[Rfam]
RNA: Small nucleolar RNA SNORA9
RNA sequence: GUGCAGACCUUUCCAGCGAGGCUCGGCCUGCAGUGGCUCUGCUCUUUCCUAUUGUGUCUGCUAGAGAGAUGUGAGGCUGUUUGAGGCCCUGCUGUAACUCUUUAUGGCAGGGUUAUAGGUAAGUCUCAGACAAAC
Numbered sequence: 001g002u003g004c005a006g007a008c009c010u011u012u013c014c015a016g017c018g019a020g021g022c023u024c025g026g027c028c029u030g031c032a033g034u035g036g037c038u039c040u041g042c043u044c045u046u047u048c049c050u051a052u053u054g055u056g057u058c059u060g061c062u063a064g065a066g067a068g069a070u071g072u073g074a075g076g077c078u079g080u081u082u083g084a085g086g087c088c089c090u091g092c093u094g095u096a097a098c099u100c101u102u103u104a105u106g107g108c109a110g111g112g113u114u115a116u117a118g119g120u121a122a123g124u125c126u127c128a129g130a131c132a133a134a135c
Base pairs, nucleotide, nucleotide: 003061004060005059006058007057008056019045020044021043025038026037027036028035072128073127074126075125076124087112088111089110090109091108092107094105095104096103